Rfam assigns this 96-nucleotide RNA from Streptococcus sanguinis to the family "Cia-dependent small RNA csRNA1". Lineage of the source: Bacteria > Bacillati > Streptococcaceae > Streptococcus > Streptococcus sanguinis. Rfam's curators put it in the seed alignment.
RNA sequence: CAUAAACAAAGACCUCCUAACUUUGUUUAGAAAUCCUAAAACUUUUCUUUUUCAUAAUAAUCUCCCUAUAAAAACCGCCCAAUUGGCGGUUUUUUU
Numbered sequence: 001c002a003u004a005a006a007c008a009a010a011g012a013c014c015u016c017c018u019a020a021c022u023u024u025g026u027u028u029a030g031a032a033a034u035c036c037u038a039a040a041a042c043u044u045u046u047c048u049u050u051u052u053c054a055u056a057a058u059a060a061u062c063u064c065c066c067u068a069u070a071a072a073a074a075c076c077g078c079c080c081a082a083u084u085g086g087c088g089g090u091u092u093u094u095u096u
Base pairs, nucleotide, nucleotide: 001030003029004028005027006026007025008024009023010022011021071093072092073091074090075089076088077087078086079085